[Rfam]
RNA: Small nucleolar RNA Z221/R21b
RNA sequence: UGGCAGUUAUGAGCAAUUCGAGAUAGUCAUGCACCACUCUGAUUUAGAUCUGUAAAAGGAUCUUGUGCUGAGAAUUUCUCUACCAUAUUUUAUACUGAGCCA
Numbered sequence: 001u002g003g004c005a006g007u008u009a010u011g012a013g014c015a016a017u018u019c020g021a022g023a024u025a026g027u028c029a030u031g032c033a034c035c036a037c038u039c040u041g042a043u044u045u046a047g048a049u050c051u052g053u054a055a056a057a058g059g060a061u062c063u064u065g066u067g068c069u070g071a072g073a074a075u076u077u078c079u080c081u082a083c084c085a086u087a088u089u090u091u092a093u094a095c096u097g098a099g100c101c102a
Stems, first nucleotide, its partner, number of pairs: 001102004